[Rfam]
RNA sequence: UUCUUAUUCAGAGAGGUGGAGGGAAUUGGCCCUUUGAAGCCUCGGCAGCGGACUUUACAAAGUACUGUGCCAAAUCCAACAAGUCAUUUGUGCUUGGAAAAUAAGAA
Numbered sequence: 001u002u003c004u005u006a007u008u009c010a011g012a013g014a015g016g017u018g019g020a021g022g023g024a025a026u027u028g029g030c031c032c033u034u035u036g037a038a039g040c041c042u043c044g045g046c047a048g049c050g051g052a053c054u055u056u057a058c059a060a061a062g063u064a065c066u067g068u069g070c071c072a073a074a075u076c077c078a079a080c081a082a083g084u085c086a087u088u089u090g091u092g093c094u095u096g097g098a099a100a101a102u103a104a105g106a107a
Stems, first nucleotide, its partner, number of pairs: 001107008013043005021032003026079004044071004049067002052063004075099001080096005